Background:
Shown here is a 158-nucleotide RNA sequence from Macleaya cordata, a member of the family "small nucleolar RNA snoR137". By type it is an H/ACA-box small nucleolar RNA. It scores 108 bits against the family's covariance model. For this family Rfam cites "Mining small RNA sequencing data: a new approach to identify small nucleolar RNAs in Arabidopsis" (Chen and Wu, Nucleic Acids Res, 2009). The organism belongs to Macleaya, within Eukaryota.
RNA sequence: GUUGCUUCUUAUUGAUGAACUCUCUUAAAUUGAGAUGAGGGAUGUUUAUGUUUUGGAAGCAUAAAUUGAGAUGAAAUGUUGUUUCAUUGCCAGUAUUAAACAGCGUGAUGUGUUUUAUUAUCUAUCUUGCAUCAUGUUACCUGUCUCCUGGUACAUUU
Numbered sequence: 001g002u003u004g005c006u007u008c009u010u011a012u013u014g015a016u017g018a019a020c021u022c023u024c025u026u027a028a029a030u031u032g033a034g035a036u037g038a039g040g041g042a043u044g045u046u047u048a049u050g051u052u053u054u055g056g057a058a059g060c061a062u063a064a065a066u067u068g069a070g071a072u073g074a075a076a077u078g079u080u081g082u083u084u085c086a087u088u089g090c091c092a093g094u095a096u097u098a099a100a101c102a103g104c105g106u107g108a109u110g111u112g113u114u115u116u117a118u119u120a121u122c123u124a125u126c127u128u129g130c131a132u133c134a135u136g137u138u139a140c141c142u143g144u145c146u147c148c149u150g151g152u153a154c155a156u157u158u
Stems, first nucleotide, its partner, number of pairs: 003061006016048005021042005089152005095146001102138003106134005
Gene Ontology terms of the family: RNA processing and nucleolus. Rfam 15.1 lists 808 matches to the family in 221 species.